The record is a 399-nucleotide RNA from a Deinococcales bacterium, which matches "Bacterial RNase P class A" in Rfam. Lineage of the source: Bacteria > Thermotogati > Deinococcota > Deinococci > Deinococcales.
[Rfam]
RNA sequence: CAGGGAAGCAACGUGGUCGCGCCCAUACGGGUGAGGAAAGUCCGGGCAUCACAGGGCAGAAUGCCUGCUAACGGCAGGGCGGCGAGUAAACAGCAGCGCAAGUUAGGAGAAUUGGGCUGAAUGUGCGAAGCCGACGGAAAGUGCCACAGAAACGAGACUGCUGCACGCCCUUUUGGGUGUGUAGUGAGGGUGAAACGGUGCGGUAAGAGCGCACCCCUGUCGCAGGAAACUGCGAGGGCGGGUAAACCCCAUUUGAUGCAAGCUCCGAACGGCGGAGGGCGGCCCGUCCUUUGAGGCCAAAGAGAGCGCUCGAGCGGUUUGGUGACAAACCGCCCAGAUAGAUGACCACGACCAGUCGCAAGGCUGGGACAGAACCCGGCUUACUCCCUUCCCUCGAGC
Number, nucleotide and partner (000 for none) at each position: 001c000002a394003g393004g392005g391006a390007a389008g388009c000010a000011a000012c350013g349014u348015g347016g346017u345018c344019g000020c033021g032022c031023c030024c029025a000026u000027a000028c000029g024030g023031g022032u021033g020034a000035g000036g000037a000038a382039a381040g380041u000042c379043c378044g377045g376046g375047c258048a257049u256050c255051a000052c000053a000054g285055g284056g283057c282058a000059g254060a253061a252062u251063g250064c078065c077066u076067g075068c074069u000070a000071a000072c000073g000074g068075c067076a066077g065078g064079g135080c133081g132082g131083c130084g000085a000086g000087u000088a000089a000090a000091c000092a000093g000094c000095a000096g000097c000098g000099c000100a000101a000102g000103u000104u000105a000106g000107g000108a000109g000110a000111a000112u000113u000114g000115g000116g000117c000118u000119g000120a000121a000122u000123g000124u000125g000126c000127g000128a000129a000130g083131c082132c081133g080134a000135c079136g249137g248138a000139a000140a000141g247142u246143g243144c242145c241146a000147c000148a000149g000150a000151a000152a000153c000154g000155a000156g000157a000158c189159u188160g185161c184162u183163g182164c181165a180166c179167g178168c177169c176170c175171u000172u000173u000174u000175g170176g169177g168178u167179g166180u165181g164182u163183a162184g161185u160186g000187a000188g159189g158190g000191u000192g000193a000194a000195a000196c000197g215198g214199u213200g212201c211202g210203g000204u000205a000206a000207g000208a000209g000210c202211g201212c200213a199214c198215c197216c000217c238218u237219g000220u235221c234222g233223c232224a231225g230226g000227a000228a000229a000230c225231u224232g223233c222234g221235a220236g000237g218238g217239c000240g000241g145242g144243u143244a000245a000246a142247c141248c137249c136250c063251a062252u061253u060254u059255g050256a049257u048258g047259c000260a000261a000262g307263c306264u305265c304266c000267g000268a000269a000270c000271g000272g297273c296274g000275g000276a290277g289278g288279g287280c286281g000282g057283c056284c055285c054286g280287u279288c278289c277290u276291u000292u000293g000294a000295g000296g273297c272298c000299a000300a000301a000302g000303a000304g265305a264306g263307c262308g000309c000310u000311c000312g000313a000314g333315c332316g331317g330318u329319u328320u327321g326322g000323u000324g000325a000326c321327a320328a319329a318330c317331c316332g315333c314334c000335c000336a000337g000338a000339u000340a000341g000342a000343u000344g018345a017346c016347c015348a014349c013350g012351a000352c000353c000354a000355g000356u000357c000358g000359c000360a000361a000362g000363g000364c000365u000366g000367g000368g000369a000370c000371a000372g000373a000374a000375c046376c045377c044378g043379g042380c040381u039382u038383a000384c000385u000386c000387c000388c008389u007390u006391c005392c004393c003394u002395c000396g000397a000398g000399c000